[Rfam]
RNA sequence: CGCCGAGUCGCCCACGGGCGAGCCGGGGACCCACCGAACCACUGGGGUGAAUCCCGCUCCCGAGCACGAUCCGGGUGUGGGUAGGGCUGCUUCCGGCCCGAACCCGUCAGCUGACCUGGUAGGCGGCCAUCGGGAGAA
Numbered sequence: 001c002g003c004c005g006a007g008u009c010g011c012c013c014a015c016g017g018g019c020g021a022g023c024c025g026g027g028g029a030c031c032c033a034c035c036g037a038a039c040c041a042c043u044g045g046g047g048u049g050a051a052u053c054c055c056g057c058u059c060c061c062g063a064g065c066a067c068g069a070u071c072c073g074g075g076u077g078u079g080g081g082u083a084g085g086g087c088u089g090c091u092u093c094c095g096g097c098c099c100g101a102a103c104c105c106g107u108c109a110g111c112u113g114a115c116c117u118g119g120u121a122g123g124c125g126g127c128c129a130u131c132g133g134g135a136g137a138a
Base pairs, nucleotide, nucleotide: 001125002124003123004122008021009020010019022120023119024118025117026116027115032044033043045105046104047103053081054080055079056078084099085098086097087096
The record is a 138-nucleotide RNA sequence from Goekera deserti, which matches "c-di-AMP riboswitch aptamer (ydaO/yuaA leader)" in Rfam. On this family, see Barrick et al., Proc Natl Acad Sci U S A 2004: "New RNA motifs suggest an expanded scope for riboswitches in bacterial genetic control". Pairs were carried over by alignment from the consensus structure.